[Rfam]
RNA sequence: AACAAGUUGACGAGGAGUAAUAAAGCAAGACUUAUAGAGAGAACACGGUUGGUGAAAGUGUUCAGUCAAACUUUAUGAAGGUUGCGUCAUUUCAAGAAAAUUAUGGCAUAAAAUGAGUGUCGUCAAUUGACGAAAAUCAGGUGGUACCGUGCGGAAGCACCCUGGAG
Numbered sequence: 001a002a003c004a005a006g007u008u009g010a011c012g013a014g015g016a017g018u019a020a021u022a023a024a025g026c027a028a029g030a031c032u033u034a035u036a037g038a039g040a041g042a043a044c045a046c047g048g049u050u051g052g053u054g055a056a057a058g059u060g061u062u063c064a065g066u067c068a069a070a071c072u073u074u075a076u077g078a079a080g081g082u083u084g085c086g087u088c089a090u091u092u093c094a095a096g097a098a099a100a101u102u103a104u105g106g107c108a109u110a111a112a113a114u115g116a117g118u119g120u121c122g123u124c125a126a127u128u129g130a131c132g133a134a135a136a137u138c139a140g141g142u143g144g145u146a147c148c149g150u151g152c153g154g155a156a157g158c159a160c161c162c163u164g165g166a167g
Stems, first nucleotide, its partner, number of pairs: 008089005020076006030066003041063006120133005138164004149160004

The record is a 167-nucleotide RNA from Lactococcus lactis, which matches "T-box leader" in Rfam. Rfam describes the family as follows. Uncharged tRNA acts as the effector for transcription antitermination of genes in the T-box leader family. A reference for the family is Winkler et al. (2001), "The GA motif: an RNA element common to bacterial antitermination systems, rRNA, and eukaryotic RNAs", RNA. The family's consensus secondary structure is taken from published work.